[Rfam]
RNA sequence: AUGUGAAUAUGAUGAGAACAAUAAUAAAAGAUGUCUGAUCAUCAAAUACAAUGUAUUUGGUAUGAUCGAACUUAUUAUCGCUACGUUCUUUCUGAUUCAUCU
Numbered sequence: 001a002u003g004u005g006a007a008u009a010u011g012a013u014g015a016g017a018a019c020a021a022u023a024a025u026a027a028a029a030g031a032u033g034u035c036u037g038a039u040c041a042u043c044a045a046a047u048a049c050a051a052u053g054u055a056u057u058u059g060g061u062a063u064g065a066u067c068g069a070a071c072u073u074a075u076u077a078u079c080g081c082u083a084c085g086u087u088c089u090u091u092c093u094g095a096u097u098c099a100u101c102u
Base pairs, nucleotide, nucleotide: 004099005098006097007096
Rfam assigns this 102-nucleotide sequence from Trifolium subterraneum to the family "Small nucleolar RNA R32/R81/Z41".
On this family, see Barneche et al., J Mol Biol 2001: "Identification of 66 box C/D snoRNAs in Arabidopsis thaliana: extensive gene duplications generated multiple isoforms predicting new ribosomal RNA 2'-O-methylation sites".
Rfam classes the family as a C/D-box small nucleolar RNA.
The organism belongs to Trifolium, within Eukaryota.
Its family is annotated with RNA processing and nucleolus in the Gene Ontology.